[Rfam]
Mason-Pfizer monkey virus packaging signal: a 280-nucleotide RNA from Nannospalax galili.
RNA sequence: UGGCACCCAAUGUGGGGCUUGGAUACUGGGGACAAUGUGAGGGAGACAACGGAGGAGAAGGGGUGCACACCUGCUAGAUCUCAAGCAAUCCAGAGAUGCGCCGCGGGAGCCUGCCCCAACUGAACUGAAGGUAAGUUGUGUCAUCCAAUCAUGGGGCAAGAAUUAAGCCAGCAUCAGAUUUAUGUUAUACAGUUAAGGGAAGCUCUCAAGACAAGAGGAGUAAAGGUUAAGACUGAGGAUUUAUUUCAUUUCUUUGAUUUUGUAAAGGACAUUUGUCCCU
Numbered sequence: 001u002g003g004c005a006c007c008c009a010a011u012g013u014g015g016g017g018c019u020u021g022g023a024u025a026c027u028g029g030g031g032a033c034a035a036u037g038u039g040a041g042g043g044a045g046a047c048a049a050c051g052g053a054g055g056a057g058a059a060g061g062g063g064u065g066c067a068c069a070c071c072u073g074c075u076a077g078a079u080c081u082c083a084a085g086c087a088a089u090c091c092a093g094a095g096a097u098g099c100g101c102c103g104c105g106g107g108a109g110c111c112u113g114c115c116c117c118a119a120c121u122g123a124a125c126u127g128a129a130g131g132u133a134a135g136u137u138g139u140g141u142c143a144u145c146c147a148a149u150c151a152u153g154g155g156g157c158a159a160g161a162a163u164u165a166a167g168c169c170a171g172c173a174u175c176a177g178a179u180u181u182a183u184g185u186u187a188u189a190c191a192g193u194u195a196a197g198g199g200a201a202g203c204u205c206u207c208a209a210g211a212c213a214a215g216a217g218g219a220g221u222a223a224a225g226g227u228u229a230a231g232a233c234u235g236a237g238g239a240u241u242u243a244u245u246u247c248a249u250u251u252c253u254u255u256g257a258u259u260u261u262g263u264a265a266a267g268g269a270c271a272u273u274u275g276u277c278c279c280u
Stems, first nucleotide, its partner, number of pairs: 006031003012026003036048003085132002089128002099122001103117001105115002139158003144155004165206001167203002215255006224242005265280001267278004
Record summary: The base pairs follow the family's consensus structure, which was predicted with PFOLD. Rfam 15.1 lists 2,921 matches to the family in 53 species. It is annotated as a cis-regulatory element. The match comes from Rfam's covariance-model search (165 bits). A reference for the family is Mustafa et al. (2004), "Mutational analysis of the predicted secondary RNA structure of the Mason-Pfizer monkey virus packaging signal", Virus Res.